Rfam assigns this 67-nucleotide sequence from Pelodiscus sinensis to the family "Selenocysteine insertion sequence 1". Its family is annotated with selenocysteine incorporation in the Gene Ontology. The organism belongs to Pelodiscus, within Eukaryota. The match comes from Rfam's covariance-model search (39 bits).

[Rfam]
RNA sequence: UCCGGCCCCCAUGACGGCCUGUCUUCAAGCCAGCCUGCUGGUGAGACAGGCCCGAAAGCUCGGCGUA
Number, nucleotide and partner (000 for none) at each position: 001u067002c000003c065004g064005g000006c000007c000008c000009c000010c000011a000012u000013g000014a000015c000016g052017g051018c050019c049020u048021g047022u046023c045024u044025u043026c000027a000028a000029g000030c000031c040032a039033g038034c000035c000036u000037g000038c033039u032040g031041g000042u000043g025044a024045g023046a022047c021048a020049g019050g018051c017052c016053c000054g000055a000056a000057a000058g000059c000060u000061c000062g000063g000064c004065g003066u000067a001